The family of this 75-nucleotide RNA sequence from Cnephaeus nilssonii is "mir-9223 microRNA precursor family". Taxonomically the source falls in Cnephaeus (Eukaryota, Metazoa, Euteleostomi, Dipnotetrapodomorpha). Its family is annotated with RISC complex and miRNA-mediated post-transcriptional gene silencing in the Gene Ontology.
[Rfam]
RNA sequence: GGCGGUUCUCAGGUGAUGUACCCCAGAAUCCGGCUCCCUCCUCUCUGGCUCCGGUUGUGUCACCCGAGAACCACA
Numbered sequence: 001g002g003c004g005g006u007u008c009u010c011a012g013g014u015g016a017u018g019u020a021c022c023c024c025a026g027a028a029u030c031c032g033g034c035u036c037c038c039u040c041c042u043c044u045c046u047g048g049c050u051c052c053g054g055u056u057g058u059g060u061c062a063c064c065c066g067a068g069a070a071c072c073a074c075a
Base pairs, nucleotide, nucleotide: 002074005071006070007069008068009067010066012064013063014062015061016060017059019057020056022054023053026051027050029048030047032045033044